[Rfam]
RNA sequence: GUUUGUCUUCAAGGCAGGGUGUAAUUCCCGACCGGCGGUAUAGCCCGCAACCCGCACACGCGGUGGAACCCGGUGAAAUUCCGGGUGCCGACAGUAAAGUCUGGUAUGUAGAAGAUCAUC
Numbered sequence: 001g002u003u004u005g006u007c008u009u010c011a012a013g014g015c016a017g018g019g020u021g022u023a024a025u026u027c028c029c030g031a032c033c034g035g036c037g038g039u040a041u042a043g044c045c046c047g048c049a050a051c052c053c054g055c056a057c058a059c060g061c062g063g064u065g066g067a068a069c070c071c072g073g074u075g076a077a078a079u080u081c082c083g084g085g086u087g088c089c090g091a092c093a094g095u096a097a098a099g100u101c102u103g104g105u106a107u108g109u110a111g112a113a114g115a116u117c118a119u120c
Stems, first nucleotide, its partner, number of pairs: 003118001005116006017029003031100002033090002035048004043088002052063002068086002071083003092103003
Shown here is a 120-nucleotide RNA sequence from Limosilactobacillus fermentum, a member of the family "FMN riboswitch aptamer (RFN element)". The family's consensus secondary structure is taken from published work. A search with the family's covariance model found it, with a score of 92 bits. Lineage of the source: Bacteria > Bacillota > Bacilli > Lactobacillaceae > Limosilactobacillus.